Shown here is a 95-nucleotide RNA sequence, a member of the family "SAM-I/IV (S-adenosyl methionine) riboswitch aptamer". The literature on the family includes a 2008 paper in RNA by Weinberg et al., "The aptamer core of SAM-IV riboswitches mimics the ligand-binding site of SAM-I riboswitches". The family's consensus secondary structure is taken from published work. Its family is annotated with S-adenosylmethionine metabolic process and regulation of gene expression in the Gene Ontology. Rfam's curators put it in the seed alignment. The family is grouped with related families in Rfam's "SAM clan".

RNA sequence: CCAGUGUAUCAAGAGUGAGAUUAAAUUCUCCUCCAACCUGCCCACUCCGGUAAGGUGGAAAAACGAUACGGCAAUCUGCAAUACAAGGAGGAAAC
Numbered sequence: 001c002c003a004g005u006g007u008a009u010c011a012a013g014a015g016u017g018a019g020a021u022u023a024a025a026u027u028c029u030c031c032u033c034c035a036a037c038c039u040g041c042c043c044a045c046u047c048c049g050g051u052a053a054g055g056u057g058g059a060a061a062a063a064c065g066a067u068a069c070g071g072c073a074a075u076c077u078g079c080a081a082u083a084c085a086a087g088g089a090g091g092a093a094a095c
Stems, first nucleotide, its partner, number of pairs: 006069005015031001017030004032059003037055003040051003045090004071079003